[Rfam]
Rfam assigns this 81-nucleotide sequence from Leptobrachium leishanense to the family "mir-26 microRNA precursor family".
For this family Rfam cites "Identification of novel genes coding for small expressed RNAs" (Lagos-Quintana et al., Science, 2001).
A search with the family's covariance model found it, with a score of 72 bits.
The family's consensus secondary structure was predicted with RNAalifold.
RNA sequence: UCGUCACUGGUUUCAAGUAAUCCAGGAUAGGCUGUGGUGUAUCUGGUUAGCCUAGCCUUGAUUACUUGCGUCCAGAGUCGA
Numbered sequence: 001u002c003g004u005c006a007c008u009g010g011u012u013u014c015a016a017g018u019a020a021u022c023c024a025g026g027a028u029a030g031g032c033u034g035u036g037g038u039g040u041a042u043c044u045g046g047u048u049a050g051c052c053u054a055g056c057c058u059u060g061a062u063u064a065c066u067u068g069c070g071u072c073c074a075g076a077g078u079c080g081a
Stems, first nucleotide, its partner, number of pairs: 002080002005077001007075004012070001014068009024058003028054006
Dot-bracket structure: .((.(.((((.(.(((((((((.(((.((((((...............)))))).))).))))))))).).)))).).)).